This 448-nucleotide RNA from Silvibacterium dinghuense belongs to the Rfam family "Bacterial RNase P class A". The source organism's lineage runs through Bacteria, Acidobacteriota, Terriglobia, Acidobacteriaceae and Silvibacterium. Rfam links the family to the GO terms tRNA processing, ribonuclease P activity and dimeric ribonuclease P complex. From the family's description: Ribonuclease P (RNase P) is a ubiquitous endoribonuclease, found in archaea, bacteria and eukarya as well as chloroplasts and mitochondria. Clan: RNaseP clan.
[Rfam]
RNA sequence: CAGGCAGGCCGGGCGGCCGCUGCCGGAGAGGCGCAAGCUUCGAUGGGAGAGGAAAGUCCGAACUCCGCAGGGCAAUGUGCCGGAUAACGUCCGGGAUCGCAGCGUCAAGGCUGCGAGACGGCCAGUGCCACAGAGAACAUACCGCCCGCGUCCCGUAAGGGCUGCGGGUAAGGGUGAAAAGGUGCGGUAAGAGCGCACCGCGCUGACGGUAACGGCAGCGGCAUGGUAAACCCCACAUGGAGCAAGACCAAAUAGGGAGGAAAUCCCCGGCUCGACCCGAAAGCCGUGGAUGCGCAUCGGCCCGGUGCGCCAACGCGGGUUAUUCAACAGUCGCGCAAGCGGCUGAAGAAGCGGAAACCUCCGGGUAGGUUGCUGGAGCGCGUCAGUAAUGGCGCGCCUAGAGGAAUGGCCGUCCUCGACAGAAUUCGGCUUACAGGCUGCUUGCAGU
Numbered sequence: 001c002a003g004g005c006a007g008g009c010c011g012g013g014c015g016g017c018c019g020c021u022g023c024c025g026g027a028g029a030g031g032c033g034c035a036a037g038c039u040u041c042g043a044u045g046g047g048a049g050a051g052g053a054a055a056g057u058c059c060g061a062a063c064u065c066c067g068c069a070g071g072g073c074a075a076u077g078u079g080c081c082g083g084a085u086a087a088c089g090u091c092c093g094g095g096a097u098c099g100c101a102g103c104g105u106c107a108a109g110g111c112u113g114c115g116a117g118a119c120g121g122c123c124a125g126u127g128c129c130a131c132a133g134a135g136a137a138c139a140u141a142c143c144g145c146c147c148g149c150g151u152c153c154c155g156u157a158a159g160g161g162c163u164g165c166g167g168g169u170a171a172g173g174g175u176g177a178a179a180a181g182g183u184g185c186g187g188u189a190a191g192a193g194c195g196c197a198c199c200g201c202g203c204u205g206a207c208g209g210u211a212a213c214g215g216c217a218g219c220g221g222c223a224u225g226g227u228a229a230a231c232c233c234c235a236c237a238u239g240g241a242g243c244a245a246g247a248c249c250a251a252a253u254a255g256g257g258a259g260g261a262a263a264u265c266c267c268c269g270g271c272u273c274g275a276c277c278c279g280a281a282a283g284c285c286g287u288g289g290a291u292g293c294g295c296a297u298c299g300g301c302c303c304g305g306u307g308c309g310c311c312a313a314c315g316c317g318g319g320u321u322a323u324u325c326a327a328c329a330g331u332c333g334c335g336c337a338a339g340c341g342g343c344u345g346a347a348g349a350a351g352c353g354g355a356a357a358c359c360u361c362c363g364g365g366u367a368g369g370u371u372g373c374u375g376g377a378g379c380g381c382g383u384c385a386g387u388a389a390u391g392g393c394g395c396g397c398c399u400a401g402a403g404g405a406a407u408g409g410c411c412g413u414c415c416u417c418g419a420c421a422g423a424a425u426u427c428g429g430c431u432u433a434c435a436g437g438c439u440g441c442u443u444g445c446a447g448u
Stems, first nucleotide, its partner, number of pairs: 001444007009437002011434001012414007020049002023046003028041004054432003058429005063242004072298001075238005080094005095119001097116007120233002125231002127227003142173002144169007152161003181199006200222001201220005207214002246371004256362005378397008

Record summary
Rfam classes the family as a ribozyme.